[Rfam]
Notes: The record is an 86-nucleotide sequence from Rodentibacter trehalosifermentans, which matches "t44 RNA" in Rfam. The family's RNA type in Rfam is small RNA. From the family's description: This family consists of a number of bacterial RNA genes of between 135 and 170 bases in length. The t44 gene has been identified in several species of enteric bacteria but homologs have also been identified in Pseudomonas and Coxiella species. The t44 gene is found between the map and rpsB genes in all species in the full alignment apart from Shigella flexneri. The function of this RNA is unknown. NCBI's taxonomy places the organism under Bacteria, Pseudomonadati, Pseudomonadota, Gammaproteobacteria, Rodentibacter.

RNA sequence: AAUUUUUAACUUAAAUAACACACACAUAUCAUUAAGGCUUCAUCGGGGUGCCAAACGGUCGAUGAGCUGAUAUGUGGAGGCUCAAC
Numbered sequence: 001a002a003u004u005u006u007u008a009a010c011u012u013a014a015a016u017a018a019c020a021c022a023c024a025c026a027u028a029u030c031a032u033u034a035a036g037g038c039u040u041c042a043u044c045g046g047g048g049u050g051c052c053a054a055a056c057g058g059u060c061g062a063u064g065a066g067c068u069g070a071u072a073u074g075u076g077g078a079g080g081c082u083c084a085a086c
Base pairs, nucleotide, nucleotide: 023076024075025074026073027072028071029070030069036068037067038066040065041064042063043062044061045060050059051058052057